[Rfam]
RNA sequence: ACUGCACGUUUGAGGCAAUAAUAGAAGUGUUCAUGGCACACCCCUGUUAGAUUCCAGUGAAUCUGCAAAUUCUGCU
Numbered sequence: 001a002c003u004g005c006a007c008g009u010u011u012g013a014g015g016c017a018a019u020a021a022u023a024g025a026a027g028u029g030u031u032c033a034u035g036g037c038a039c040a041c042c043c044c045u046g047u048u049a050g051a052u053u054c055c056a057g058u059g060a061a062u063c064u065g066c067a068a069a070u071u072c073u074g075c076u
Base pairs, nucleotide, nucleotide: 012044014042015041020076022074023073024072025071026070027039028038029037048065049064050063051062052061053060054059